[Rfam]
RNA sequence: GAGUUAAUGUACGUGGCAAGCUUAAGGGCCUUUGGCCCGCAGGCGCAGCGAAAGCGAGUCCUAACCGGGCGUCCCAGUCGCGUGCAUUAGACCCGAAGCGAGGUGAUCUAGCCAUGGCCAGGGUGAAGCGUGCCUAACCGCUCGUGGAGGCCCGAACCAGUAUACCUUAAAAAGUGUUUGGAUGAGCUGUGGCUAGGGGUGAAAGGCCAAUCAAACUUCGUGAUAGCUGGUU
Dot-bracket structure: ....(((((((((((((..((((..(((.......)))..))))...((....))..((((.....))))......)))))))))))))..((.(...((((((...((((((((((((.((((...(((.((......)).)))....))))...(((..((((........)))).)))..).))))))))))).(((.....)))......))))))......).))..
Rfam assigns this 232-nucleotide part of an RNA from an uncultured bacterium to the family "Bacterial large subunit ribosomal RNA". It is one of the family's seed sequences. The family is grouped with related families in Rfam's "LSU clan".